[Rfam]
RNA sequence: CUAAAUCUCUUUGCCAUUUGGCUUAGAUCAAGUGUAGUAUCUGUUCUUUUCAGUGUAACAGCUGAAACGUCAUCAUUGAUGACAUUUACAUUUUUACCCUAUUUUUGGAUCUCAGGUGGUAAAGCUUGAUGGGCUUGCUCACACUUUACCACACAGUGUCGUUACCAUUGCACCUUCGGUUUCUGACGCGAACUUCA
Numbered sequence: 001c002u003a004a005a006u007c008u009c010u011u012u013g014c015c016a017u018u019u020g021g022c023u024u025a026g027a028u029c030a031a032g033u034g035u036a037g038u039a040u041c042u043g044u045u046c047u048u049u050u051c052a053g054u055g056u057a058a059c060a061g062c063u064g065a066a067a068c069g070u071c072a073u074c075a076u077u078g079a080u081g082a083c084a085u086u087u088a089c090a091u092u093u094u095u096a097c098c099c100u101a102u103u104u105u106u107g108g109a110u111c112u113c114a115g116g117u118g119g120u121a122a123a124g125c126u127u128g129a130u131g132g133g134c135u136u137g138c139u140c141a142c143a144c145u146u147u148a149c150c151a152c153a154c155a156g157u158g159u160c161g162u163u164a165c166c167a168u169u170g171c172a173c174c175u176u177c178g179g180u181u182u183c184u185g186a187c188g189c190g191a192a193c194u195u196c197a
Stems, first nucleotide, its partner, number of pairs: 008027003013022003048067006069083006116152008130141004156189005161183001164180003
RNA: U2 spliceosomal RNA